Annotation: Shown here is a 68-nucleotide sequence from Lederbergia galactosidilytica, a member of the family "Bacillaceae-1 RNA". The source organism's lineage runs through Bacteria, Bacillati, Bacilli, Bacillaceae and Lederbergia. By type it is a small RNA. A search with the family's covariance model found it, with a score of 40 bits.

[Rfam]
RNA sequence: GAUAAAGGAUCCUCGACUAAGUGCCAACACUGCCUGUGUCGAACGACGAAGUCCUCACUUCCAGUGAA
Numbered sequence: 001g002a003u004a005a006a007g008g009a010u011c012c013u014c015g016a017c018u019a020a021g022u023g024c025c026a027a028c029a030c031u032g033c034c035u036g037u038g039u040c041g042a043a044c045g046a047c048g049a050a051g052u053c054c055u056c057a058c059u060u061c062c063a064g065u066g067a068a
Stems, first nucleotide, its partner, number of pairs: 011051001013049003017045001027039004055067004